Shown here is a 140-nucleotide RNA sequence from Desmospora activa, a member of the family "FMN riboswitch aptamer (RFN element)".
Pairs were carried over by alignment from the consensus structure, which is taken from published work.
Rfam describes the family as follows. The RFN element is a highly conserved domain that is found frequently in the 5'-untranslated regions of prokaryotic mRNAs that encode for flavin mononucleotide (FMN) biosynthesis and transport proteins. This element is a metabolite-dependent riboswitch that directly binds FMN in the absence of proteins. In Bacillus subtilis, the riboswitch most likely controls gene expression by causing premature transcription termination within the 5' untranslated region of the ribDEAHT operon and precluding access to the ribosome-binding site of ypaA mRNA.The FMN riboswitch structure, reported in present an FMN-bound six-stem junction, adopts a butterfly-like scaffold, stapled together by opposingly directed but nearly identically folded peripheral domains.
[Rfam]
RNA sequence: AGUAUCCUUCGGGGCAGGGUGAAAUUCCCGACCGGCGGUGAUGGCACAAAUUGCCUCAGUCCGUGACCCGUUCCGUCAGGAGCGGUGGACCCGGUGCAAUUCCGGGACCGACAGUAUAGUCUGGAUGGGAGAAGGAUGAC
Numbered sequence: 001a002g003u004a005u006c007c008u009u010c011g012g013g014g015c016a017g018g019g020u021g022a023a024a025u026u027c028c029c030g031a032c033c034g035g036c037g038g039u040g041a042u043g044g045c046a047c048a049a050a051u052u053g054c055c056u057c058a059g060u061c062c063g064u065g066a067c068c069c070g071u072u073c074c075g076u077c078a079g080g081a082g083c084g085g086u087g088g089a090c091c092c093g094g095u096g097c098a099a100u101u102c103c104g105g106g107a108c109c110g111a112c113a114g115u116a117u118a119g120u121c122u123g124g125a126u127g128g129g130a131g132a133a134g135g136a137u138g139a140c
Stems, first nucleotide, its partner, number of pairs: 003138008017029003031120002033110002035064004059108002068085002090106005112123003